The record is a 98-nucleotide RNA from Prolemur simus, which matches "Y RNA" in Rfam. On this family, see Teunissen et al., Nucleic Acids Res 2000: "Conserved features of Y RNAs: a comparison of experimentally derived secondary structures". The family's consensus secondary structure is taken from published work. A search with the family's covariance model found it, with a score of 56 bits.

RNA sequence: GGCUGGUCUGACGGUAGUGGGUUAUCAGAGAACUUACUAGCAACACUGUCACUAAAGUUGGUAGACAACUCCCCACUGCUAAAUUUGACUGGCUUGAA
Number, nucleotide and partner (000 for none) at each position: 001g094002g093003c092004u091005g090006g089007u088008c087009u000010g086011a085012c000013g000014g000015u081016a077017g076018u075019g074020g073021g072022u000023u000024a000025u000026c000027a000028g000029a000030g000031a000032a000033c000034u000035u063036a062037c061038u000039a059040g058041c000042a000043a000044c000045a000046c000047u000048g000049u000050c000051a000052c000053u000054a000055a000056a000057g000058u040059u039060g000061g037062u036063a035064g000065a000066c000067a000068a000069c000070u000071c000072c021073c020074c019075a018076c017077u016078g000079c000080u000081a015082a000083a000084u000085u011086u010087g008088a007089c006090u005091g004092g003093c002094u001095u000096g000097a000098a000